The record is a 74-nucleotide sequence from Tatumella ptyseos, which matches "tpke11" in Rfam. Gene Ontology term of the family: response to temperature stimulus. Rfam describes the family as follows. In Yersinia located in ICR upstream dnaJ (chaperone)gene. The family's consensus secondary structure was predicted with WAR. For this family Rfam cites "Temperature-responsive in vitro RNA structurome of Yersinia pseudotuberculosis" (Righetti et al., Proc Natl Acad Sci U S A, 2016).

Nucleotides: 074
Base pairs, nucleotide, nucleotide: 003015005013016047017046018045019044020043021042022041023040024039027037028036029035
Number, partner (000 for none) and nucleotide at each position: 001000c002000a003015u004000c005013g006000c007000c008000u009000u010000c011000a012000a013005c014000c015003a016047g017046c018045a019044c020043g021042g022041g023040c024039g025000u026000a027037g028036g029035a030000u031000a032000a033000u034000a035029u036028c037027c038000a039024c040023g041022c042021c043020c044019g045018u046017g047016c048000g049000a050000u051000c052000a053000u054000g055000u056000u057000a058000a059000g060000g061000g062000c063000a064000a065000u066000g067000a068000a069000a070000a071000a072000a073000u074000g